[Rfam]
RNA: MIR2655 microRNA precursor family
Organism: Trifolium subterraneum
RNA sequence: CCCUUAUCUUUUAAAAGUUUCAAGUUGGUCCCUUAUCUUUAUUUUAGGUUUCAAGUUGGUCCCUUCCGUCAAUUUUUUAACUAUUUCCGUUAAAUUUGGACACGUGUCAUAUGUCCAAGUGUGCAACGUGUCCAAAUUAGUUCGCCAUGUGUCUAAAUUUAACGGAAAUUGUUAAAAAAUUGACGGAAGGGACCAACUUGAAACCUAAAAUAAAGAUAAGAGACCAACUUGAAACUUUUAAAAGAUACUGGA
Numbered sequence: 001c002c003c004u005u006a007u008c009u010u011u012u013a014a015a016a017g018u019u020u021c022a023a024g025u026u027g028g029u030c031c032c033u034u035a036u037c038u039u040u041a042u043u044u045u046a047g048g049u050u051u052c053a054a055g056u057u058g059g060u061c062c063c064u065u066c067c068g069u070c071a072a073u074u075u076u077u078u079a080a081c082u083a084u085u086u087c088c089g090u091u092a093a094a095u096u097u098g099g100a101c102a103c104g105u106g107u108c109a110u111a112u113g114u115c116c117a118a119g120u121g122u123g124c125a126a127c128g129u130g131u132c133c134a135a136a137u138u139a140g141u142u143c144g145c146c147a148u149g150u151g152u153c154u155a156a157a158u159u160u161a162a163c164g165g166a167a168a169u170u171g172u173u174a175a176a177a178a179a180u181u182g183a184c185g186g187a188a189g190g191g192a193c194c195a196a197c198u199u200g201a202a203a204c205c206u207a208a209a210a211u212a213a214a215g216a217u218a219a220g221a222g223a224c225c226a227a228c229u230u231g232a233a234a235c236u237u238u239u240a241a242a243a244g245a246u247a248c249u250g251g252a
Stems, first nucleotide, its partner, number of pairs: 002250001005247004023229003027225003032220012045207003